[Rfam]
RNA sequence: CCCUGAUAAAGCCACACACCGGGCGACCGGGGGCCGGAAAGCUACGGGUCUCACCAGAGACAGCCUUGUAGCUGCCAGG
Numbered sequence: 001c002c003c004u005g006a007u008a009a010a011g012c013c014a015c016a017c018a019c020c021g022g023g024c025g026a027c028c029g030g031g032g033g034c035c036g037g038a039a040a041g042c043u044a045c046g047g048g049u050c051u052c053a054c055c056a057g058a059g060a061c062a063g064c065c066u067u068g069u070a071g072c073u074g075c076c077a078g079g
Stems, first nucleotide, its partner, number of pairs: 012037002017032001019030004040073004046065002048061005